[Rfam]
RNA: U5 spliceosomal RNA
Organism: Chara braunii
RNA sequence: AGCUGCGUGCCCACCUCAGUUGGCGUACUAUUCUUUCGCCUUUCACGAAAGAAUACCGUGGGGUGAGCACACUAAGCAGCUUUAAGUUACGCAAAAUUUUUACAGGUCCCUCGCUCCGUCGAAUU
Numbered sequence: 001a002g003c004u005g006c007g008u009g010c011c012c013a014c015c016u017c018a019g020u021u022g023g024c025g026u027a028c029u030a031u032u033c034u035u036u037c038g039c040c041u042u043u044c045a046c047g048a049a050a051g052a053a054u055a056c057c058g059u060g061g062g063g064u065g066a067g068c069a070c071a072c073u074a075a076g077c078a079g080c081u082u083u084a085a086g087u088u089a090c091g092c093a094a095a096a097u098u099u100u101u102a103c104a105g106g107u108c109c110c111u112c113g114c115u116c117c118g119u120c121g122a123a124u125u
Stems, first nucleotide, its partner, number of pairs: 003079004008069003012065007029055008104125001106124002109121001